[Rfam]
RNA sequence: GAGUUACUGUUGCUGGCGAGGUUAAGGAUUUAAGAUUUGGAGCCGGAGCGAAAGCGAGUCUGAAAAGGGCGCUUAGUCAGUAGGAGUAGACGCGAAACCUUGUGAUCUACCCAUGGGCAGGUUGAAGCUGUGGUAACACACAGUGGAGGACCGAACCCGUUGACGUUGAAAAGUCUUGGGAUGACCUGUGGGUAGGGGUGAAAGGCCAAUCAAACUGGGAAAUAGCUCGUA
Numbered sequence: 001g002a003g004u005u006a007c008u009g010u011u012g013c014u015g016g017c018g019a020g021g022u023u024a025a026g027g028a029u030u031u032a033a034g035a036u037u038u039g040g041a042g043c044c045g046g047a048g049c050g051a052a053a054g055c056g057a058g059u060c061u062g063a064a065a066a067g068g069g070c071g072c073u074u075a076g077u078c079a080g081u082a083g084g085a086g087u088a089g090a091c092g093c094g095a096a097a098c099c100u101u102g103u104g105a106u107c108u109a110c111c112c113a114u115g116g117g118c119a120g121g122u123u124g125a126a127g128c129u130g131u132g133g134u135a136a137c138a139c140a141c142a143g144u145g146g147a148g149g150a151c152c153g154a155a156c157c158c159g160u161u162g163a164c165g166u167u168g169a170a171a172a173g174u175c176u177u178g179g180g181a182u183g184a185c186c187u188g189u190g191g192g193u194a195g196g197g198g199u200g201a202a203a204g205g206c207c208a209a210u211c212a213a214a215c216u217g218g219g220a221a222a223u224a225g226c227u228c229g230u231a
Stems, first nucleotide, its partner, number of pairs: 005088004010083008020044004026038003048055002058070004091229002094226001098219003102215002107195011118183001120152004127144006156180003162175003197207003
Notes
Bacterial large subunit ribosomal RNA: a 231-nucleotide part of an RNA from Flavobacteriaceae bacterium Ap0902. A reference for the family is Yusupov et al. (2001), "Crystal structure of the ribosome at 5.5 A resolution", Science. It scores 2641 bits against the family's covariance model. The family's consensus secondary structure is taken from published work. Clan: LSU clan.